[Rfam]
RNA sequence: GCCAUACUACGAUGCAACGAACGGGGGCGCAACGUGGGUGAAAGUAAACGAUGAUCCCGAAUGAACUCUAGGCUAAAAUACGACUCAAAAUGAAAAACCAAUCCUGGCUUGGGGCUUUCCCCGGGUGAGGUUUUUUU
Numbered sequence: 001g002c003c004a005u006a007c008u009a010c011g012a013u014g015c016a017a018c019g020a021a022c023g024g025g026g027g028c029g030c031a032a033c034g035u036g037g038g039u040g041a042a043a044g045u046a047a048a049c050g051a052u053g054a055u056c057c058c059g060a061a062u063g064a065a066c067u068c069u070a071g072g073c074u075a076a077a078a079u080a081c082g083a084c085u086c087a088a089a090a091u092g093a094a095a096a097a098c099c100a101a102u103c104c105u106g107g108c109u110u111g112g113g114g115c116u117u118u119c120c121c122c123g124g125g126u127g128a129g130g131u132u133u134u135u136u137u
Stems, first nucleotide, its partner, number of pairs: 001055001003053003010050002014045002056063001072086001103130003107126007
This 137-nucleotide RNA from Rouxiella badensis belongs to the Rfam family "Enterobacteria greA leader". A search with the family's covariance model found it, with a score of 77 bits. The literature on the family includes a 2010 paper in Genome Biol by Naville and Gautheret, "Premature terminator analysis sheds light on a hidden world of bacterial transcriptional attenuation". The source organism's lineage runs through Bacteria, Pseudomonadota, Gammaproteobacteria, Yersiniaceae and Rouxiella. By type it is a cis-regulatory leader.